Rfam assigns this 224-nucleotide sequence from Herbaspirillum hiltneri to the family "permuted transfer-messenger RNA".
NCBI's taxonomy places the organism under Bacteria, Betaproteobacteria, Oxalobacteraceae, Herbaspirillum, Herbaspirillum hiltneri.
[Rfam]
RNA sequence: GCGAACUUGAAGGUAAACAUCGUUUUGGACGGGGGUUCGAUUCCCCCCACCUCCACCAAAUGUUGGCAUGUUUAUGCUCUCGAGAAUACGCCUCCAUUUGAAGGGGGUGAACAGGUUUCGACAGAGCGAUCAGUAACCGGAGAUACACCACGUCACGCGUCUGACGUAAAUAGCGCAAAUCGAUAAUUGCAAAUGAAUCGCAAUAUCUUGCUGUCGGGACCUAA
Numbered sequence: 001g002c003g004a005a006c007u008u009g010a011a012g013g014u015a016a017a018c019a020u021c022g023u024u025u026u027g028g029a030c031g032g033g034g035g036u037u038c039g040a041u042u043c044c045c046c047c048c049a050c051c052u053c054c055a056c057c058a059a060a061u062g063u064u065g066g067c068a069u070g071u072u073u074a075u076g077c078u079c080u081c082g083a084g085a086a087u088a089c090g091c092c093u094c095c096a097u098u099u100g101a102a103g104g105g106g107g108u109g110a111a112c113a114g115g116u117u118u119c120g121a122c123a124g125a126g127c128g129a130u131c132a133g134u135a136a137c138c139g140g141a142g143a144u145a146c147a148c149c150a151c152g153u154c155a156c157g158c159g160u161c162u163g164a165c166g167u168a169a170a171u172a173g174c175g176c177a178a179a180u181c182g183a184u185a186a187u188u189g190c191a192a193a194u195g196a197a198u199c200g201c202a203a204u205a206u207c208u209u210g211c212u213g214u215c216g217g218g219a220c221c222u223a224a
Stems, first nucleotide, its partner, number of pairs: 001146001012138002021128003025124003031047005048109007151166004